[Rfam]
RNA sequence: AGGCAACCUACUUGUUAAUAAAACAAUGACAUGAGAGGUGUUUAACUGCUCCUAGAUCAAAUUAUGCUUCUGCUCUUCAGACUUGCUGAGAUUUUAUCGUCUUUGAAGCUGGUCUAGUAGUCUUAAGCACAUU
Numbered sequence: 001a002g003g004c005a006a007c008c009u010a011c012u013u014g015u016u017a018a019u020a021a022a023a024c025a026a027u028g029a030c031a032u033g034a035g036a037g038g039u040g041u042u043u044a045a046c047u048g049c050u051c052c053u054a055g056a057u058c059a060a061a062u063u064a065u066g067c068u069u070c071u072g073c074u075c076u077u078c079a080g081a082c083u084u085g086c087u088g089a090g091a092u093u094u095u096a097u098c099g100u101c102u103u104u105g106a107a108g109c110u111g112g113u114c115u116a117g118u119a120g121u122c123u124u125a126a127g128c129a130c131a132u133u
Base pairs, nucleotide, nucleotide: 002042003041004040005039007038008037009035011033013031014030015029016028017027067127068126069125072122074120079115080114081113082112083111085109086108087107090101091100092099
Annotation: The family of this 133-nucleotide sequence is "Small nucleolar RNA snoR77". For this family Rfam cites "Experimental RNomics: identification of 140 candidates for small non-messenger RNAs in the plant Arabidopsis thaliana" (Marker et al., Curr Biol, 2002). Rfam's curators put it in the seed alignment. Pairs were carried over by alignment from the consensus structure, which was predicted with WAR.